[Rfam]
RNA sequence: AAAUAAUUUAAUUAUGUACCGAAGACAGUAGGUGGCUGAUGCCUUAAUUUCCUGCCGAGGACCACAUUGAGUAUGAUCAAUAGUCCCUCUAUGUCAACGGUGGCAUGGAGUUUUUUGUUUUUCCGU
Numbered sequence: 001a002a003a004u005a006a007u008u009u010a011a012u013u014a015u016g017u018a019c020c021g022a023a024g025a026c027a028g029u030a031g032g033u034g035g036c037u038g039a040u041g042c043c044u045u046a047a048u049u050u051c052c053u054g055c056c057g058a059g060g061a062c063c064a065c066a067u068u069g070a071g072u073a074u075g076a077u078c079a080a081u082a083g084u085c086c087c088u089c090u091a092u093g094u095c096a097a098c099g100g101u102g103g104c105a106u107g108g109a110g111u112u113u114u115u116u117g118u119u120u121u122u123c124c125g126u
Base pairs, nucleotide, nucleotide: 028055029054030053031052032051034043035042036041087110088109089108090107091106092105093104094103095102

Rfam assigns this 126-nucleotide sequence from Vagococcus elongatus to the family "Ribosomal protein L10 leader". Rfam describes the family as follows. This family is a putative r-protein leader autoregulatory structure found in B. subtilis and other low-GC Gram-positive bacteria. It is located in the 5' untranslated regions of mRNAs encoding ribosomal proteins L10 and L12 (rplJ-rplL). A Rho-independent transcription terminator structure that is probably involved in regulation is included at the 3' end. It scores 81 bits against the family's covariance model. The family's consensus secondary structure was predicted with CMfinder.